[Rfam]
RNA: MIR5298 microRNA precursor family
Organism: Medicago truncatula
RNA sequence: UUCGGUUUUCUCCAUUUUCUUCUGGAAUUUUUAUGGGAUUAUUUUUGUUGAAAGUUGAUGGAGAUGAUAUGAAUAUGAAAAAGAGAAGAAG
Numbered sequence: 001u002u003c004g005g006u007u008u009u010c011u012c013c014a015u016u017u018u019c020u021u022c023u024g025g026a027a028u029u030u031u032u033a034u035g036g037g038a039u040u041a042u043u044u045u046u047g048u049u050g051a052a053a054g055u056u057g058a059u060g061g062a063g064a065u066g067a068u069a070u071g072a073a074u075a076u077g078a079a080a081a082a083g084a085g086a087a088g089a090a091g
Stems, first nucleotide, its partner, number of pairs: 006084004011079001013077003017073003037056004042051002
Dot-bracket structure: .....((((.(.(((.(((.................((((.((......)).))))..............))).))).).)))).......